[Rfam]
RNA: Small nucleolar RNA SNORD90
Organism: Vidua chalybeata
RNA sequence: AAUUAACUUUUUGGUGUCUUAUGAUGAAGCUUCAUAGGGCAGAUUCUGAGUUGAGAAAUAAAAUUUCUCUCCACUGAUCCUCUCUAUAUGCCAUCUGAAGACACUAUAAUAUUG
Number, nucleotide and partner (000 for none) at each position: 001a000002a000003u000004u000005a000006a000007c000008u000009u000010u000011u000012u106013g105014g104015u103016g102017u101018c100019u099020u000021a000022u000023g000024a000025u000026g000027a000028a000029g094030c000031u000032u000033c090034a089035u088036a000037g083038g082039g081040c000041a000042g078043a000044u000045u077046c076047u000048g074049a000050g072051u000052u000053g069054a068055g067056a066057a065058a000059u000060a000061a000062a000063a000064u000065u057066u056067c055068u054069c053070u000071c000072c050073a000074c048075u000076g046077a045078u042079c000080c000081u039082c038083u037084c000085u000086a000087u000088a035089u034090g033091c000092c000093a000094u029095c000096u000097g000098a000099a019100g018101a017102c016103a015104c014105u013106a012107u000108a000109a000110u000111a000112u000113u000114g000